SAM riboswitch aptamer (S box leader): a 95-nucleotide RNA sequence from Zhihengliuella flava. Taxonomically the source falls in Zhihengliuella (Bacteria, Bacillati, Actinomycetes, Micrococcales). From the family's description: The SAM riboswitch is found upstream of a number of genes which code for proteins involved in methionine or cysteine biosynthesis in Gram-positive bacteria.
RNA sequence: CAACCAUCCCGAGCGGCUGAGAGAUCUGGCUCUACGACGCCGCAGCAACCACCCGGAUUCAUCCGGAAAGGUGCUACUGCCAGAAACGAUGGAGA
Numbered sequence: 001c002a003a004c005c006a007u008c009c010c011g012a013g014c015g016g017c018u019g020a021g022a023g024a025u026c027u028g029g030c031u032c033u034a035c036g037a038c039g040c041c042g043c044a045g046c047a048a049c050c051a052c053c054c055g056g057a058u059u060c061a062u063c064c065g066g067a068a069a070g071g072u073g074c075u076a077c078u079g080c081c082a083g084a085a086a087c088g089a090u091g092g093a094g095a
Base pairs, nucleotide, nucleotide: 004092005091006090007089008088013043014042015041016040017039021032022031023030026083027082028081029080044075045074046073047072049071050070052066053065079087